[Rfam]
RNA sequence: GAAUGGCAAGAGUGAUGAAUCAAUUAGAUGUGUGAAUGGGGAUUGAAUAUUCUUUUCUAUUUCCCAUUUUGAACUCAGAUUAUUGAGGCAUUAAAAUCUGUCUGACUUGCCAUUG
Numbered sequence: 001g002a003a004u005g006g007c008a009a010g011a012g013u014g015a016u017g018a019a020u021c022a023a024u025u026a027g028a029u030g031u032g033u034g035a036a037u038g039g040g041g042a043u044u045g046a047a048u049a050u051u052c053u054u055u056u057c058u059a060u061u062u063c064c065c066a067u068u069u070u071g072a073a074c075u076c077a078g079a080u081u082a083u084u085g086a087g088g089c090a091u092u093a094a095a096a097u098c099u100g101u102c103u104g105a106c107u108u109g110c111c112a113u114u115g
Stems, first nucleotide, its partner, number of pairs: 002114009
Rfam assigns this 115-nucleotide RNA from Hibiscus syriacus to the family "Small nucleolar RNA Z266". The family's RNA type in Rfam is C/D-box small nucleolar RNA. Taxonomically the source falls in Hibiscus (Eukaryota, Viridiplantae, Streptophytina, Magnoliopsida). The base pairs follow the family's consensus structure, which was predicted with PFOLD. On this family, see Chen et al., Nucleic Acids Res 2003: "The high diversity of snoRNAs in plants: identification and comparative study of 120 snoRNA genes from Oryza sativa". Rfam links the family to the GO terms RNA processing and nucleolus.